[Rfam]
RNA sequence: AGAGCAGGAUGAAUGGUCGCGGCUGCAGCGCUGAAAAGCGGCAGACGAGGAAAGUCCGGGCUUCAUAGGGCAGGAUGCCGGAUAACGUCCGGUGGAGGCGACUCCAAGGAUAGUGCAACAGAAAUAUACCGCCGGCUUUUAGCCGGUAAGGUUGGAAGGGCAGUGUAAGAGACUACCGCUCUCCUGGUAACAGGGGAGGCAUAUGUAAACCCCAUCCGAAGCAAGACCGAACAGAAAGCAUAAGACGGCCCGUCUGCUUUCGGGUAGGUUGCUUGAGCCUUCCGGUGACGGCAGGCCUAGAUAGAUGACCAUUCGCGACAGAACCCGGCUUAUAGUCCUGCUCAUAUU
Numbered sequence: 001a002g003a004g005c006a007g008g009a010u011g012a013a014u015g016g017u018c019g020c021g022g023c024u025g026c027a028g029c030g031c032u033g034a035a036a037a038g039c040g041g042c043a044g045a046c047g048a049g050g051a052a053a054g055u056c057c058g059g060g061c062u063u064c065a066u067a068g069g070g071c072a073g074g075a076u077g078c079c080g081g082a083u084a085a086c087g088u089c090c091g092g093u094g095g096a097g098g099c100g101a102c103u104c105c106a107a108g109g110a111u112a113g114u115g116c117a118a119c120a121g122a123a124a125u126a127u128a129c130c131g132c133c134g135g136c137u138u139u140u141a142g143c144c145g146g147u148a149a150g151g152u153u154g155g156a157a158g159g160g161c162a163g164u165g166u167a168a169g170a171g172a173c174u175a176c177c178g179c180u181c182u183c184c185u186g187g188u189a190a191c192a193g194g195g196g197a198g199g200c201a202u203a204u205g206u207a208a209a210c211c212c213c214a215u216c217c218g219a220a221g222c223a224a225g226a227c228c229g230a231a232c233a234g235a236a237a238g239c240a241u242a243a244g245a246c247g248g249c250c251c252g253u254c255u256g257c258u259u260u261c262g263g264g265u266a267g268g269u270u271g272c273u274u275g276a277g278c279c280u281u282c283c284g285g286u287g288a289c290g291g292c293a294g295g296c297c298u299a300g301a302u303a304g305a306u307g308a309c310c311a312u313u314c315g316c317g318a319c320a321g322a323a324c325c326c327g328g329c330u331u332a333u334a335g336u337c338c339u340g341c342u343c344a345u346a347u348u
Stems, first nucleotide, its partner, number of pairs: 002343009011333001012313007020047002023044004028039001052331003056328005061221004068251004073217005078092005093107001094105004108212002113210002115206003129151002131147007159177002162174003178200001179198008225270004234261006243255004277296004282291003
Dot-bracket structure: .(((((((((((((((((.((.((((.(..........).)))).))....[[[.[[[[[((((...[[[[.((((((((((.....)))))(((((....)))).)((...(((((...........(((((((((...)))))))..)).......((.(((.......))).))(((((((((....)))))))).)...)))..)))))))))))))...((((.....((((((...((((.]]]])))))))))).....))))......((((.(((....))).))))..........)))))))..........]]]]]]]].).))))))))).....
RNA: Bacterial RNase P class A
Organism: Qiania dongpingensis